[Rfam]
RNA sequence: GUGGCUUAAUGAAGGCCUGCACUGCAAACAGCUUGCUGUGGGUGUAGACUGGAUGUUUCUUGCCAC
Numbered sequence: 001g002u003g004g005c006u007u008a009a010u011g012a013a014g015g016c017c018u019g020c021a022c023u024g025c026a027a028a029c030a031g032c033u034u035g036c037u038g039u040g041g042g043u044g045u046a047g048a049c050u051g052g053a054u055g056u057u058u059c060u061u062g063c064c065a066c
Base pairs, nucleotide, nucleotide: 001066002065003064004063005062014050015049017047018046019045020044021043022042023041029038030037031036
RNA: Selenocysteine insertion sequence 1